This 97-nucleotide RNA from Pedobacter cryophilus belongs to the Rfam family "Flavo-1 RNA". NCBI's taxonomy places the organism under Bacteria, Pseudomonadati, Bacteroidota, Sphingobacteriales, Pedobacter.

RNA sequence: UUAAAGCGUUAACGAUGGAAGCGGCAUCCUUUUUUUGAGCGCCCUUCGACUCCGCUCAGGGUGACAAAAAAAGAUAAAGCGGACAGCGUGUUAAAAC
Numbered sequence: 001u002u003a004a005a006g007c008g009u010u011a012a013c014g015a016u017g018g019a020a021g022c023g024g025c026a027u028c029c030u031u032u033u034u035u036u037g038a039g040c041g042c043c044c045u046u047c048g049a050c051u052c053c054g055c056u057c058a059g060g061g062u063g064a065c066a067a068a069a070a071a072a073g074a075u076a077a078a079g080c081g082g083a084c085a086g087c088g089u090g091u092u093a094a095a096a097c
Stems, first nucleotide, its partner, number of pairs: 012089003016085002021080002026075003032070006
The match comes from Rfam's covariance-model search (52 bits).